[Rfam]
RNA sequence: UGACUUUUUAAGCUAGUCCAGAGAGGCUAUCAAGAGGAAAACUUAAGGGUCUUGUUAGGCGAUAAUAAGACGCUCAUAAGUCAACCACCUGAUAGCGAGGACUAUUAGGUGGUUUUUUCU
Numbered sequence: 001u002g003a004c005u006u007u008u009u010a011a012g013c014u015a016g017u018c019c020a021g022a023g024a025g026g027c028u029a030u031c032a033a034g035a036g037g038a039a040a041a042c043u044u045a046a047g048g049g050u051c052u053u054g055u056u057a058g059g060c061g062a063u064a065a066u067a068a069g070a071c072g073c074u075c076a077u078a079a080g081u082c083a084a085c086c087a088c089c090u091g092a093u094a095g096c097g098a099g100g101a102c103u104a105u106u107a108g109g110u111g112g113u114u115u116u117u118u119c120u
Base pairs, nucleotide, nucleotide: 004036005035006034007033008032014029015028016027017026018025044076046074047073049071050070051069052068053067054066055065056064057063083114084113085112086111087110088109089108090107091106092105093104094103095102
Dot-bracket structure: ...(((((.....(((((......)))))..))))).......(.((.(((((((((.....))))))))).)).)......(((((((((((((......)))))))))))))......